[Rfam]
RNA sequence: CGCGGCAGUCAGAAUUCGGGACAAGCCCGGGGCGGUCGCUUGUCCCGAAUUUUGACUCUGCCAAA
Numbered sequence: 001c002g003c004g005g006c007a008g009u010c011a012g013a014a015u016u017c018g019g020g021a022c023a024a025g026c027c028c029g030g031g032g033c034g035g036u037c038g039c040u041u042g043u044c045c046c047g048a049a050u051u052u053u054g055a056c057u058c059u060g061c062c063a064a065a
Stems, first nucleotide, its partner, number of pairs: 004062003007057020027035003
The record is a 65-nucleotide sequence from Plutella xylostella, which matches "mir-8521 microRNA precursor family" in Rfam.